Background: L20-Deltaproteobacteria ribosomal protein leader: a 56-nucleotide sequence. The literature on the family includes a 2020 paper in BMC Microbiol by Eckert and Weinberg, "Discovery of 20 novel ribosomal leader candidates in bacteria and archaea".
RNA sequence: AGCCCAGAACCGUGAGGAAACGGCCCCUUGCGGAUCGGGAAUUCAACCUAAAGGAG
Numbered sequence: 001a002g003c004c005c006a007g008a009a010c011c012g013u014g015a016g017g018a019a020a021c022g023g024c025c026c027c028u029u030g031c032g033g034a035u036c037g038g039g040a041a042u043u044c045a046a047c048c049u050a051a052a053g054g055a056g
Stems, first nucleotide, its partner, number of pairs: 003039003007036002010033008
Dot-bracket structure: ..(((.((.((((((((........)))))))).))))).................
By type it is a cis-regulatory leader.
It is one of the family's seed sequences.